[Rfam]
RNA sequence: GUGAGAUUUUUGUGCGACGUGGCCGAGUUAUUGGUUGCGACCUGAUAAAAUUUCCUAACUGCAAGAUUGGCUUUUUCGGGCCGAUUCUUUUUACGCACCGCUCACUUGGGU
Numbered sequence: 001g002u003g004a005g006a007u008u009u010u011u012g013u014g015c016g017a018c019g020u021g022g023c024c025g026a027g028u029u030a031u032u033g034g035u036u037g038c039g040a041c042c043u044g045a046u047a048a049a050a051u052u053u054c055c056u057a058a059c060u061g062c063a064a065g066a067u068u069g070g071c072u073u074u075u076u077c078g079g080g081c082c083g084a085u086u087c088u089u090u091u092u093a094c095g096c097a098c099c100g101c102u103c104a105c106u107u108g109g110g111u
Stems, first nucleotide, its partner, number of pairs: 003054007018039004023034004067084007

The record is a 111-nucleotide sequence from Campylobacter hominis, which matches "purD RNA motif" in Rfam. Pairs were carried over by alignment from the consensus structure, which is taken from published work. By type it is a cis-regulatory element. Rfam links the family to the GO term regulation of gene expression.